[Rfam]
RNA: mir-338 microRNA precursor family
Organism: Canis lupus
RNA sequence: AACAAUAUCCUGGUGCUGAGUGAUGACACAUGCAACUCCAGCAUCAGUGAUUUUGUUGA
Numbered sequence: 001a002a003c004a005a006u007a008u009c010c011u012g013g014u015g016c017u018g019a020g021u022g023a024u025g026a027c028a029c030a031u032g033c034a035a036c037u038c039c040a041g042c043a044u045c046a047g048u049g050a051u052u053u054u055g056u057u058g059a
Stems, first nucleotide, its partner, number of pairs: 001057005007051003010047009